Record summary:
A member of the RNA family "Small nucleolar RNA Z102/R77" from Camellia sinensis, 90 nucleotides long. The organism belongs to Camellia, within Eukaryota. For this family Rfam cites "The high diversity of snoRNAs in plants: identification and comparative study of 120 snoRNA genes from Oryza sativa" (Chen et al., Nucleic Acids Res, 2003). The family's consensus secondary structure was predicted with PFOLD. Gene Ontology terms of the family: RNA processing and nucleolus. The family has 9 seed sequences and 1,346 matches in Rfam 15.1.
RNA sequence: GAAUGAGAUGAUGAUCAUGAUUUGGUUUCCCUAUUGGUUUGAUAGCCGAAAUGAUGGUAUCAUACUUGUGUUACCUCUAUCUGAUCAUUC
Numbered sequence: 001g002a003a004u005g006a007g008a009u010g011a012u013g014a015u016c017a018u019g020a021u022u023u024g025g026u027u028u029c030c031c032u033a034u035u036g037g038u039u040u041g042a043u044a045g046c047c048g049a050a051a052u053g054a055u056g057g058u059a060u061c062a063u064a065c066u067u068g069u070g071u072u073a074c075c076u077c078u079a080u081c082u083g084a085u086c087a088u089u090c
Stems, first nucleotide, its partner, number of pairs: 002089004041061001045058003
Description: By type it is a C/D-box small nucleolar RNA.